Group II catalytic intron D1-D4-3: a 176-nucleotide RNA sequence from Peptococcaceae bacterium SCADC1_2_3. Rfam describes the family as follows. Group II introns are found in rRNA, tRNA and mRNA of organelles in fungi, plants and protists, and also in mRNA in bacteria. Pairs were carried over by alignment from the consensus structure. The family has 406 seed sequences and 4,274 matches in Rfam 15.1.
[Rfam]
RNA sequence: GUCGUCGUGAGGCGGAGUCCGGAGGAAGCCCAAUCCAAAAGUGCGGGGUGACGAACAGGAAAACGGAUAUGAGGUGUGGUAUGUUCGGGGCGAGCGGGCACGUGACUGCGAAGCCCUCCAUCCGCAAAUGGGGCGUGCUUUAUAAAUCAGGCGUUUACACACGGAAAGUUCUGUGU
Numbered sequence: 001g002u003c004g005u006c007g008u009g010a011g012g013c014g015g016a017g018u019c020c021g022g023a024g025g026a027a028g029c030c031c032a033a034u035c036c037a038a039a040a041g042u043g044c045g046g047g048g049u050g051a052c053g054a055a056c057a058g059g060a061a062a063a064c065g066g067a068u069a070u071g072a073g074g075u076g077u078g079g080u081a082u083g084u085u086c087g088g089g090g091c092g093a094g095c096g097g098g099c100a101c102g103u104g105a106c107u108g109c110g111a112a113g114c115c116c117u118c119c120a121u122c123c124g125c126a127a128a129u130g131g132g133g134c135g136u137g138c139u140u141u142a143u144a145a146a147u148c149a150g151g152c153g154u155u156u157a158c159a160c161a162c163g164g165a166a167a168g169u170u171c172u173g174u175g176u
Stems, first nucleotide, its partner, number of pairs: 002015005028176002031173002036168001041162003045158001046156005064150001066148003074143003078139007088116004094109004